The family of this 73-nucleotide sequence from Spiroplasma citri is "tRNA". By type it is a transfer RNA. The base pairs follow the family's consensus structure, which is taken from published work. Transfer RNA (tRNA) molecules are approximately 80 nucleotides in length. Their secondary structure includes four short double-helical elements and three loops (D, anti-codon, and T loops). Further hydrogen bonds mediate the characteristic L-shaped molecular structure. tRNAs have two regions of fundamental functional importance: the anti-codon, which is responsible for specific mRNA codon recognition, and the 3' end, to which the tRNAs corresponding amino acid is attached (by aminoacyl-tRNA synthetases). tRNAs cope with the degeneracy of the genetic code in two manners: having more than one tRNA (with a specific anti-codon) for a particular amino acid; and 'wobble' base-pairing, i.e. permitting non-standard base-pairing at the 3rd anti-codon position.
RNA sequence: AGGGGUAUAGUUCAAUCGGUAGAACACCGGACUUCAAAUCCGGGUGUUGUGGGUUCAAGUCCUGCUACCCCUG
Numbered sequence: 001a002g003g004g005g006u007a008u009a010g011u012u013c014a015a016u017c018g019g020u021a022g023a024a025c026a027c028c029g030g031a032c033u034u035c036a037a038a039u040c041c042g043g044g045u046g047u048u049g050u051g052g053g054u055u056c057a058a059g060u061c062c063u064g065c066u067a068c069c070c071c072u073g
Stems, first nucleotide, its partner, number of pairs: 001072007010025004027043005049065005